Rfam assigns this 57-nucleotide sequence from Salmo salar to the family "mir-194 microRNA precursor family". On this family, see Michael et al., Mol Cancer Res 2003: "Reduced accumulation of specific microRNAs in colorectal neoplasia". Rfam links the family to the GO terms RISC complex and miRNA-mediated post-transcriptional gene silencing.

[Rfam]
RNA sequence: UGUAACAGCAACUCCAUAUGGAAUAGCUCAGGGUUCCAGUGGAGCUGCUGUUAUGGG
Numbered sequence: 001u002g003u004a005a006c007a008g009c010a011a012c013u014c015c016a017u018a019u020g021g022a023a024u025a026g027c028u029c030a031g032g033g034u035u036c037c038a039g040u041g042g043a044g045c046u047g048c049u050g051u052u053a054u055g056g057g
Stems, first nucleotide, its partner, number of pairs: 002054008012044006019038003